[Rfam]
RNA sequence: UGAUUGAGUAUAAGCGGUCAGUAUGGCAAACAUACGGGACAUUGCUCUACAG
Numbered sequence: 001u002g003a004u005u006g007a008g009u010a011u012a013a014g015c016g017g018u019c020a021g022u023a024u025g026g027c028a029a030a031c032a033u034a035c036g037g038g039a040c041a042u043u044g045c046u047c048u049a050c051a052g
Stems, first nucleotide, its partner, number of pairs: 006047005015037001018039002021035005

Xanthine riboswitch aptamer (NMT1 RNA): a 52-nucleotide sequence from Acinetobacter courvalinii.
Lineage of the source: Bacteria > Pseudomonadota > Gammaproteobacteria > Moraxellaceae > Acinetobacter.
A reference for the family is Yu and Breaker (2020), "A bacterial riboswitch class senses xanthine and uric acid to regulate genes associated with purine oxidation", RNA.